[Rfam]
RNA sequence: UCCCUGCUUUUCCUCCCUGAGCAGGAGCACGUCGGCUUCACUGCCGACGAGCUUUGCACCCCGGCCGCCGCAAGGUGCCGGGGUUUCUUUUU
Numbered sequence: 001u002c003c004c005u006g007c008u009u010u011u012c013c014u015c016c017c018u019g020a021g022c023a024g025g026a027g028c029a030c031g032u033c034g035g036c037u038u039c040a041c042u043g044c045c046g047a048c049g050a051g052c053u054u055u056g057c058a059c060c061c062c063g064g065c066c067g068c069c070g071c072a073a074g075g076u077g078c079c080g081g082g083g084u085u086u087c088u089u090u091u092u
Base pairs, nucleotide, nucleotide: 003025004024005023006022007021008020030049031048032047033046034045035044058084059083060082061081062080063079064078065077